RNA: Plastid-atpF group II-D1 intron
Organism: Carnegiea gigantea
RNA sequence: UCGGAAUUUAUCUAUAUAGAGCACUUAUGUUGAUAAAAUGAUUUGAACCCUUU
Number, nucleotide and partner (000 for none) at each position: 001u000002c000003g000004g000005a000006a000007u000008u000009u000010a000011u033012c032013u000014a030015u029016a028017u027018a000019g000020a000021g000022c000023a000024c000025u000026u000027a017028u016029g015030u014031u000032g012033a011034u000035a000036a000037a000038a000039u000040g000041a000042u000043u000044u000045g000046a000047a000048c000049c000050c000051u000052u000053u000